[Rfam]
RNA sequence: GAGUGGGGCGAUGACUAUGAUUAUUUCCCUAUUGGUUUGAUUGCCAGAAUGAUGGCAGAUGCUAUAUUAGCUCUAUCUGACCACUC
Numbered sequence: 001g002a003g004u005g006g007g008g009c010g011a012u013g014a015c016u017a018u019g020a021u022u023a024u025u026u027c028c029c030u031a032u033u034g035g036u037u038u039g040a041u042u043g044c045c046a047g048a049a050u051g052a053u054g055g056c057a058g059a060u061g062c063u064a065u066a067u068u069a070g071c072u073c074u075a076u077c078u079g080a081c082c083a084c085u086c
Stems, first nucleotide, its partner, number of pairs: 002085004042057004
RNA: Small nucleolar RNA Z102/R77